[Rfam]
RNA sequence: AAGAGAAUCGAGCCAAUAAAGAGCAAGAAGAUUGACUCAAGAACAAA
Numbered sequence: 001a002a003g004a005g006a007a008u009c010g011a012g013c014c015a016a017u018a019a020a021g022a023g024c025a026a027g028a029a030g031a032u033u034g035a036c037u038c039a040a041g042a043a044c045a046a047a
Base pairs, nucleotide, nucleotide: 008040010038011037012036014034015033016032017031
RNA: Plastid-rpl16 group II-D1 intron